[Rfam]
RNA sequence: GUGAGGUGAUGAUGAAGUUUAUCCAUUCUCUGAGUUCAGUGGUGCUGCUCUCCUGCAGCGCCCCGAUUCCUGUUCUAGGGUCUGGGUGCUGUGCAGCCUCCACAGACCCUCCAGUCUCCCAACAGAGAGCUGUGGUGUGUGGCUGGCUGCCUGCAGGAGUGAAGCACUGCUGGCAGGGUCAGAGCCCCUCUUUUGGGGGGGCUCUGUCCUCACUGAGAUGAGGAAUGAUGUCUGAUCAC
Numbered sequence: 001g002u003g004a005g006g007u008g009a010u011g012a013u014g015a016a017g018u019u020u021a022u023c024c025a026u027u028c029u030c031u032g033a034g035u036u037c038a039g040u041g042g043u044g045c046u047g048c049u050c051u052c053c054u055g056c057a058g059c060g061c062c063c064c065g066a067u068u069c070c071u072g073u074u075c076u077a078g079g080g081u082c083u084g085g086g087u088g089c090u091g092u093g094c095a096g097c098c099u100c101c102a103c104a105g106a107c108c109c110u111c112c113a114g115u116c117u118c119c120c121a122a123c124a125g126a127g128a129g130c131u132g133u134g135g136u137g138u139g140u141g142g143c144u145g146g147c148u149g150c151c152u153g154c155a156g157g158a159g160u161g162a163a164g165c166a167c168u169g170c171u172g173g174c175a176g177g178g179u180c181a182g183a184g185c186c187c188c189u190c191u192u193u194u195g196g197g198g199g200g201g202c203u204c205u206g207u208c209c210u211c212a213c214u215g216a217g218a219u220g221a222g223g224a225a226u227g228a229u230g231u232c233u234g235a236u237c238a239c
Stems, first nucleotide, its partner, number of pairs: 010238004017231002020228001024223001026222003030217002034213002039174002042171001043169002046166003049162002051158007059088005065082001068080004093150006106138002108135001111132001115128004176211002178208001180206004185201006
Dot-bracket structure: .........((((...((.(...(.(((.((..((...((.(((.((((((((((((.(((((.(..((((.....)))).).)))))....((((((.......(((..(...((((......))))...)..).))......)))))).)))))))..)).))).)).).)).(((.((((.((((((.....)))))).)))).).))))..))..))))....).))...)))).
This 239-nucleotide RNA from Zapornia atra belongs to the Rfam family "Small nucleolar RNA SNORD17". Rfam 15.1 lists 1,015 matches to the family in 568 species. Rfam classes the family as a C/D-box small nucleolar RNA. The source organism's lineage runs through Eukaryota, Eumetazoa, Sauropsida, Aves and Zapornia. A reference for the family is Huttenhofer et al. (2001), "RNomics: an experimental approach that identifies 201 candidates for novel, small, non-messenger RNAs in mouse", EMBO J.